A member of the RNA family "Purine riboswitch aptamer" from Lysinibacillus halotolerans, 100 nucleotides long. Pairs were carried over by alignment from the consensus structure, which is taken from published work. The organism belongs to Lysinibacillus, within Bacteria.
RNA sequence: AUUAUUAAAUAAGACCUCCCACAUAUAUGCUAGAGAAUAUGGCUCUAGUGUCUCUACCCGGCACCGUAAAUGUCGGACUAUGCGGGAAAGCAAACUUUUG
Number, nucleotide and partner (000 for none) at each position: 001a000002u000003u000004a000005u000006u000007a000008a000009a000010u000011a000012a000013g000014a000015c000016c000017u000018c086019c085020c084021a000022c082023a081024u080025a079026u000027a000028u000029g049030c048031u047032a046033g045034a044035g043036a000037a000038u000039a000040u000041g000042g000043c035044u034045c033046u032047a031048g030049u029050g000051u000052c000053u000054c000055u000056a000057c000058c076059c075060g074061g073062c072063a071064c000065c000066g000067u000068a000069a000070a000071u063072g062073u061074c060075g059076g058077a000078c000079u025080a024081u023082g022083c000084g020085g019086g018087a000088a000089a000090g000091c000092a000093a000094a000095c000096u000097u000098u000099u000100g000